[Rfam]
RNA: Acido-Lenti-1 RNA
RNA sequence: CCUCCCCCUUCAGGGGAGGCUGAUAUAUUUCGCCCCUUCAGGGCU
Numbered sequence: 001c002c003u004c005c006c007c008c009u010u011c012a013g014g015g016g017a018g019g020c021u022g023a024u025a026u027a028u029u030u031c032g033c034c035c036c037u038u039c040a041g042g043g044c045u
Base pairs, nucleotide, nucleotide: 001019002018003017004016005015006014008013032044033043034042035041